[Rfam]
RNA sequence: AACCAUCUUUUCUUGGGGUUGCGCUACUGUCCAAUGAACGUCUAGUGAGGACAAUACUGCUAACGCUGAACAACAAUUGCAUCAGGUGGGCUCUGCUUUACCUUGGUGCAAUUUUUGGAAUU
Numbered sequence: 001a002a003c004c005a006u007c008u009u010u011u012c013u014u015g016g017g018g019u020u021g022c023g024c025u026a027c028u029g030u031c032c033a034a035u036g037a038a039c040g041u042c043u044a045g046u047g048a049g050g051a052c053a054a055u056a057c058u059g060c061u062a063a064c065g066c067u068g069a070a071c072a073a074c075a076a077u078u079g080c081a082u083c084a085g086g087u088g089g090g091c092u093c094u095g096c097u098u099u100a101c102c103u104u105g106g107u108g109c110a111a112u113u114u115u116u117g118g119a120a121u122u
Stems, first nucleotide, its partner, number of pairs: 005019005021060003026055001028053005038046002079109006088098004
RNA: U4atac minor spliceosomal RNA
Organism: Cnephaeus nilssonii